RNA: 6S / SsrS RNA
RNA sequence: AAUUCCCUGGGGUGCGAUCAAGUUAUUUGUACCCUGAGCCGAUAUCUACAGACAUUGGUGUCUUCCUGAUUAUGGUGUGCAGGCCCGGAUUGCCCGCGGAAGCCUAAGUAGUCAUCUGAUGCCAAACUUGAACACACUGGUUCAAGGAGUCAAGAAUAGCGGAUUCACUUCCGGGGUACCA
Numbered sequence: 001a002a003u004u005c006c007c008u009g010g011g012g013u014g015c016g017a018u019c020a021a022g023u024u025a026u027u028u029g030u031a032c033c034c035u036g037a038g039c040c041g042a043u044a045u046c047u048a049c050a051g052a053c054a055u056u057g058g059u060g061u062c063u064u065c066c067u068g069a070u071u072a073u074g075g076u077g078u079g080c081a082g083g084c085c086c087g088g089a090u091u092g093c094c095c096g097c098g099g100a101a102g103c104c105u106a107a108g109u110a111g112u113c114a115u116c117u118g119a120u121g122c123c124a125a126a127c128u129u130g131a132a133c134a135c136a137c138u139g140g141u142u143c144a145a146g147g148a149g150u151c152a153a154g155a156a157u158a159g160c161g162g163a164u165u166c167a168c169u170u171c172c173g174g175g176g177u178a179c180c181a
Base pairs, nucleotide, nucleotide: 003178005176006175007174008173009172010171011170012168013167014166017164018163019162030149032147033146035144036143037142038141039140040139056124057123059121060120061119062118067114068113069112070111071110072109073108079103080102084099085098086096087095088094